[Rfam]
The record is an 87-nucleotide RNA sequence from Homo sapiens, which matches "mir-3688 microRNA precursor family" in Rfam. The source organism's lineage runs through Eukaryota, Opisthokonta, Amniota, Hominidae and Homo.
RNA sequence: UCACUUUAAAGAGUGGCAAAGUCUUUCCAUAUGUGUAACAGACAUACAUACAUACAUAUGGAAAGACUUUGCCACUCUUGAAAGUGA
Number, nucleotide and partner (000 for none) at each position: 001u087002c086003a085004c084005u083006u082007u081008a000009a079010a078011g077012a076013g075014u074015g073016g072017c071018a070019a069020a068021g067022u066023c065024u064025u063026u062027c061028c060029a059030u058031a057032u056033g055034u054035g000036u000037a000038a000039c000040a000041g000042a000043c000044a000045u000046a000047c000048a000049u000050a000051c000052a000053u000054a034055c033056a032057u031058a030059u029060g028061g027062a026063a025064a024065g023066a022067c021068u020069u019070u018071g017072c016073c015074a014075c013076u012077c011078u010079u009080g000081a007082a006083a005084g004085u003086g002087a001